[Rfam]
RNA: c-di-GMP-I riboswitch aptamer
Organism: Pullulanibacillus camelliae
RNA sequence: AUUCCGAAAAGGCAAACUUAUUGAAAAGUAAGGACGCAAAGCCACGGGCCUAAGGUUUAUAGCUAGGGUAGCCGGGUUGCCGAA
Numbered sequence: 001a002u003u004c005c006g007a008a009a010a011g012g013c014a015a016a017c018u019u020a021u022u023g024a025a026a027a028g029u030a031a032g033g034a035c036g037c038a039a040a041g042c043c044a045c046g047g048g049c050c051u052a053a054g055g056u057u058u059a060u061a062g063c064u065a066g067g068g069u070a071g072c073c074g075g076g077u078u079g080c081c082g083a084a
Stems, first nucleotide, its partner, number of pairs: 012037002017032006040078004045074003048069003055063003